Shown here is a 148-nucleotide RNA sequence from Kaistia soli, a member of the family "FMN riboswitch aptamer (RFN element)". The organism belongs to Kaistia soli, within Bacteria. The base pairs follow the family's consensus structure, which is taken from published work. Rfam links the family to the GO term FMN binding.

RNA sequence: CCUCGUUCUCAGGGCGGGGUGAAAUUCCCCACCGGCGGUAGGCAGGCAUCGUCUGCAAGCCCGCGAGCGCCCUCCCGUCAGGGGAGGGGUCAGCAGAUUCGGUCCAAUUCCGAAGCCGACGGUAUAGUCCGGAUGGAAGAGAACAAGC
Dot-bracket structure: ..(.((((((......(((.......))).[[((((((....................[[))))..((........................))...(((((.......)))))]])).(((....]]))).......)))))).)..
Numbered sequence: 001c002c003u004c005g006u007u008c009u010c011a012g013g014g015c016g017g018g019g020u021g022a023a024a025u026u027c028c029c030c031a032c033c034g035g036c037g038g039u040a041g042g043c044a045g046g047c048a049u050c051g052u053c054u055g056c057a058a059g060c061c062c063g064c065g066a067g068c069g070c071c072c073u074c075c076c077g078u079c080a081g082g083g084g085a086g087g088g089g090u091c092a093g094c095a096g097a098u099u100c101g102g103u104c105c106a107a108u109u110c111c112g113a114a115g116c117c118g119a120c121g122g123u124a125u126a127g128u129c130c131g132g133a134u135g136g137a138a139g140a141g142a143a144c145a146a147g148c
Stems, first nucleotide, its partner, number of pairs: 003146001005144006017029003031128002033118002035064004059116002067094002098114005120131003